This 200-nucleotide RNA from Alphabaculovirus oxochraceae belongs to the Rfam family "Baculoviridae Nucleocapsid Assembly essential Element". Rfam describes the family as follows. Internal cis-element within the ac83 gene. A reference for the family is Huang et al. (2017), "The Autographa californica Multiple Nucleopolyhedrovirus ac83 Gene Contains a cis-Acting Element That Is Essential for Nucleocapsid Assembly", J Virol. By type it is a cis-regulatory element.
Nucleotides: 200
Base pairs, nucleotide, nucleotide: 009191010190014031015030016029017028018027019026020025040050041048042047135179136178137177144170145169146168147167152163153162155160
Number, partner (000 for none) and nucleotide at each position: 001000c002000a003000u004000u005000u006000u007000g008000u009191g010190a011000c012000a013000c014031g015030u016029a017028u018027a019026u020025u021000g022000a023000c024000a025020a026019a027018u028017a029016u030015a031014u032000a033000c034000g035000a036000u037000a038000a039000c040050g041048a042047c043000a044000u045000u046000u047042g048041u049000a050040c051000c052000c053000a054000u055000c056000u057000a058000u059000a060000u061000u062000c063000u064000a065000c066000g067000a068000u069000u070000g071000a072000c073000c074000a075000a076000a077000a078000a079000u080000a081000u082000a083000c084000u085000a086000c087000a088000c089000u090000g091000a092000g093000u094000c095000c096000a097000a098000a099000a100000u101000a102000u103000a104000c105000u106000a107000c108000a109000c110000u111000g112000u113000c114000a115000c116000c117000c118000a119000a120000a121000u122000a123000u124000a125000c126000c127000u128000a129000c130000g131000a132000u133000g134000u135179c136178g137177u138000a139000a140000a141000a142000g143000a144170g145169g146168c147167u148000a149000a150000a151000u152163a153162u154000a155160u156000u157000g158000a159000a160155g161000g162153a163152u164000a165000u166000g167147g168146g169145u170144c171000g172000a173000a174000u175000a176000c177137a178136c179135g180000a181000u182000c183000a184000a185000a186000a187000a188000a189000a190010u191009c192000u193000a194000c195000g196000a197000u198000u199000u200000u